[Rfam]
RNA sequence: CCCUUAUCUUUUAAAAGUUUCAAGUUGGUCCCUUAUCUUUUCUUCAGGUUUCAAGUUGGUCCCUCCUGUCAAAAUUUUCACUAUUACCGUUAAAUUUGGACGUGUCAUCUUUUCAAAUGUGGUUUCCGUUUGCCACGUGUCCAAAUUUAACGGUAAUAGUGAAAAUUUUGACGGGAUGGACCAAUAUGAAACCUGCAGAAAAGAUAAGGGACCAACUUGAAACUUUUAAAAGAUAAGGGA
Dot-bracket structure: .(((((((..............(((.(((.(((((((((((((.(((.................................................................................................................................................))).))))))))))))).))).)))..............)))))))..
Numbered sequence: 001c002c003c004u005u006a007u008c009u010u011u012u013a014a015a016a017g018u019u020u021c022a023a024g025u026u027g028g029u030c031c032c033u034u035a036u037c038u039u040u041u042c043u044u045c046a047g048g049u050u051u052c053a054a055g056u057u058g059g060u061c062c063c064u065c066c067u068g069u070c071a072a073a074a075u076u077u078u079c080a081c082u083a084u085u086a087c088c089g090u091u092a093a094a095u096u097u098g099g100a101c102g103u104g105u106c107a108u109c110u111u112u113u114c115a116a117a118u119g120u121g122g123u124u125u126c127c128g129u130u131u132g133c134c135a136c137g138u139g140u141c142c143a144a145a146u147u148u149a150a151c152g153g154u155a156a157u158a159g160u161g162a163a164a165a166u167u168u169u170g171a172c173g174g175g176a177u178g179g180a181c182c183a184a185u186a187u188g189a190a191a192c193c194u195g196c197a198g199a200a201a202a203g204a205u206a207a208g209g210g211a212c213c214a215a216c217u218u219g220a221a222a223c224u225u226u227u228a229a230a231a232g233a234u235a236a237g238g239g240a
Stems, first nucleotide, its partner, number of pairs: 002238007023217003027213003031209013045195003